This 56-nucleotide RNA from Rhodococcus coprophilus belongs to the Rfam family "F6 TB sRNA".
The family has 16 seed sequences and 310 matches in Rfam 15.1.
The source organism's lineage runs through Bacteria, Bacillati, Actinomycetes, Nocardiaceae and Rhodococcus.
It scores 62 bits against the family's covariance model.

RNA sequence: CGGUCGACCCCGUGUUGCUGCCUGACCCCCGACCUGGUAGCAACACGGGGUUUCUG
Numbered sequence: 001c002g003g004u005c006g007a008c009c010c011c012g013u014g015u016u017g018c019u020g021c022c023u024g025a026c027c028c029c030c031g032a033c034c035u036g037g038u039a040g041c042a043a044c045a046c047g048g049g050g051u052u053u054c055u056g
Base pairs, nucleotide, nucleotide: 002055003054007051008050009049010048011047012046013045014044015043016042017041018040019039020038021037022036